The family of this 362-nucleotide sequence from Shimazuella alba is "transfer-messenger RNA". The family's consensus secondary structure is taken from published work. The match comes from Rfam's covariance-model search (207 bits). Rfam classes the family as a non-coding RNA gene. Its family is annotated with RNA catabolic process in the Gene Ontology.
RNA sequence: GGGGGCGUUUUUGGGAUUCGACGGGGAUGAUUGUCCUACGAGGAGCGAGCCGAGGGGCUGCGUAUCUCGUUAAAUACGCGGACGCCAAUAAUAACUGGCAAAAACAAUAAUGUUGCUCUAGCUGCCUAAUAGUGUAGCUAGGAUCCACUUCUUCAUCGCCUAUGUGAAGCUGCUGGGUCUCAAACUUUAGUAGGCUAGCCGCUCGAUAGGCCACGAUCGAGUUGGCGAACUUUAGUGGCUGGUCUAAUGAGCAGCCUGUCGCUGGGCGACUUGUUAGACGAGAUAUAAAUCAGCGACUGCGCUCGGAGUGCCUCGUGGGGUGGUGUCUUCGGACAGCGGUUCGACUCCGCUCGCCUCCACCA
Numbered sequence: 001g002g003g004g005g006c007g008u009u010u011u012u013g014g015g016a017u018u019c020g021a022c023g024g025g026g027a028u029g030a031u032u033g034u035c036c037u038a039c040g041a042g043g044a045g046c047g048a049g050c051c052g053a054g055g056g057g058c059u060g061c062g063u064a065u066c067u068c069g070u071u072a073a074a075u076a077c078g079c080g081g082a083c084g085c086c087a088a089u090a091a092u093a094a095c096u097g098g099c100a101a102a103a104a105c106a107a108u109a110a111u112g113u114u115g116c117u118c119u120a121g122c123u124g125c126c127u128a129a130u131a132g133u134g135u136a137g138c139u140a141g142g143a144u145c146c147a148c149u150u151c152u153u154c155a156u157c158g159c160c161u162a163u164g165u166g167a168a169g170c171u172g173c174u175g176g177g178u179c180u181c182a183a184a185c186u187u188u189a190g191u192a193g194g195c196u197a198g199c200c201g202c203u204c205g206a207u208a209g210g211c212c213a214c215g216a217u218c219g220a221g222u223u224g225g226c227g228a229a230c231u232u233u234a235g236u237g238g239c240u241g242g243u244c245u246a247a248u249g250a251g252c253a254g255c256c257u258g259u260c261g262c263u264g265g266g267c268g269a270c271u272u273g274u275u276a277g278a279c280g281a282g283a284u285a286u287a288a289a290u291c292a293g294c295g296a297c298u299g300c301g302c303u304c305g306g307a308g309u310g311c312c313u314c315g316u317g318g319g320g321u322g323g324u325g326u327c328u329u330c331g332g333a334c335a336g337c338g339g340u341u342c343g344a345c346u347c348c349g350c351u352c353g354c355c356u357c358c359a360c361c362a
Stems, first nucleotide, its partner, number of pairs: 001358007022331008031322001034320010045309001046305005051069005056083001058081005118141008142179006148172001151169001153167004158195006199224001201222007209240006242279010254267003258297004264290001335351005